[Rfam]
RNA sequence: AGGGCAUAAUGAUGAUUGAUUUAUUUGCAUCCGAUAUAUUUCAUGAUUGGAACAAUACCUCCUACUCAUUCUGA
Numbered sequence: 001a002g003g004g005c006a007u008a009a010u011g012a013u014g015a016u017u018g019a020u021u022u023a024u025u026u027g028c029a030u031c032c033g034a035u036a037u038a039u040u041u042c043a044u045g046a047u048u049g050g051a052a053c054a055a056u057a058c059c060u061c062c063u064a065c066u067c068a069u070u071c072u073g074a
Base pairs, nucleotide, nucleotide: 006069007068009066028050031045
Small nucleolar RNA Z105: a 74-nucleotide RNA sequence from Camphora micrantha. Lineage of the source: Eukaryota > Streptophyta > Spermatophyta > Laurales > Camphora. The family's RNA type in Rfam is C/D-box small nucleolar RNA.